RNA sequence: UAUGGAUCAAUGAUGCAACCAGAUUACUGCGUUAUCUUCCUGUAAUUGCCUCUAGGGCUUGAAGAUGCUUACAAUCACUGAGAUCCAGC
Numbered sequence: 001u002a003u004g005g006a007u008c009a010a011u012g013a014u015g016c017a018a019c020c021a022g023a024u025u026a027c028u029g030c031g032u033u034a035u036c037u038u039c040c041u042g043u044a045a046u047u048g049c050c051u052c053u054a055g056g057g058c059u060u061g062a063a064g065a066u067g068c069u070u071a072c073a074a075u076c077a078c079u080g081a082g083a084u085c086c087a088g089c
Stems, first nucleotide, its partner, number of pairs: 003087005